The family of this 114-nucleotide RNA from Thermanaerosceptrum fracticalcis is "SAM riboswitch aptamer (S box leader)". Gene Ontology term of the family: regulation of gene expression.
RNA sequence: CUCUUAUCCAGAGAGGUGGAGGGACUGGCCCGAUGAAACCCAGCAACGGGCCUCACGGCAAGACCGGAGGCGCUGUGCUAAUUCCUGCAAGAUUAAUUUCUUGACAGAUAAGAG
Numbered sequence: 001c002u003c004u005u006a007u008c009c010a011g012a013g014a015g016g017u018g019g020a021g022g023g024a025c026u027g028g029c030c031c032g033a034u035g036a037a038a039c040c041c042a043g044c045a046a047c048g049g050g051c052c053u054c055a056c057g058g059c060a061a062g063a064c065c066g067g068a069g070g071c072g073c074u075g076u077g078c079u080a081a082u083u084c085c086u087g088c089a090a091g092a093u094u095a096a097u098u099u100c101u102u103g104a105c106a107g108a109u110a111a112g113a114g
Stems, first nucleotide, its partner, number of pairs: 001114008013041001015040003021031003025087001027085002042079004047075002050071004083106001088103005